[Rfam]
RNA sequence: UAUGAUAAAGCCAAACCAGUCGAUAGAUUGGGACGGAAAGUCACGGGUCUUUUUGACGCUGAUAUUUCUUUGCGUACGAAAAAAGAUAGCCGGACUGCCAUUU
Numbered sequence: 001u002a003u004g005a006u007a008a009a010g011c012c013a014a015a016c017c018a019g020u021c022g023a024u025a026g027a028u029u030g031g032g033a034c035g036g037a038a039a040g041u042c043a044c045g046g047g048u049c050u051u052u053u054u055g056a057c058g059c060u061g062a063u064a065u066u067u068c069u070u071u072g073c074g075u076a077c078g079a080a081a082a083a084a085g086a087u088a089g090c091c092g093g094a095c096u097g098c099c100a101u102u103u
Stems, first nucleotide, its partner, number of pairs: 003100002011036002016031006034089001039096004044092003047087008

The family of this 103-nucleotide RNA sequence from Desulfosalsimonas propionicica is "c-di-GMP-I-GGC riboswitch aptamer". For this family Rfam cites "Bioinformatic analysis of riboswitch structures uncovers variant classes with altered ligand specificity" (Weinberg et al., Proc Natl Acad Sci U S A, 2017).